[Rfam]
RNA sequence: GCUUCUGCUGAGGGCCUGUUUUCUAAGCCUCACACUAGAGACUUGUUCAUUACUCUUUUGUCUAAGGGAAAGUCCCUGGACCUAGGUCAGAGAGUGCCAUGUGGCUAUACACGUUGACAAUCCCAUUUUCCAUAUGAAGUCUCCAAGAAGCUAAUAGGCAUAGCAGGAGCAGUAUGGUGAAGGGAUAUCACCCUCAGCUCUUCUAGUUACAUAGGCAGUACACCUUCCUGCAUGCACCAACCACAAAGGGCUUAUUCUCAGUGUGGC
Numbered sequence: 001g002c003u004u005c006u007g008c009u010g011a012g013g014g015c016c017u018g019u020u021u022u023c024u025a026a027g028c029c030u031c032a033c034a035c036u037a038g039a040g041a042c043u044u045g046u047u048c049a050u051u052a053c054u055c056u057u058u059u060g061u062c063u064a065a066g067g068g069a070a071a072g073u074c075c076c077u078g079g080a081c082c083u084a085g086g087u088c089a090g091a092g093a094g095u096g097c098c099a100u101g102u103g104g105c106u107a108u109a110c111a112c113g114u115u116g117a118c119a120a121u122c123c124c125a126u127u128u129u130c131c132a133u134a135u136g137a138a139g140u141c142u143c144c145a146a147g148a149a150g151c152u153a154a155u156a157g158g159c160a161u162a163g164c165a166g167g168a169g170c171a172g173u174a175u176g177g178u179g180a181a182g183g184g185a186u187a188u189c190a191c192c193c194u195c196a197g198c199u200c201u202u203c204u205a206g207u208u209a210c211a212u213a214g215g216c217a218g219u220a221c222a223c224c225u226u227c228c229u230g231c232a233u234g235c236a237c238c239a240a241c242c243a244c245a246a247a248g249g250g251c252u253u254a255u256u257c258u259c260a261g262u263g264u265g266g267c
Base pairs, nucleotide, nucleotide: 003266004265007262008261009260010259011258014216015215016214017213018212019211022066024064025063027061028060037051038050040048041047070253071252072251074250075249076248077247086098088096089095099114100113101112102111103110116188122184123183124182126181127180128179130177131176132175133174141172142171143169150164151163152162153161218237219236221234222233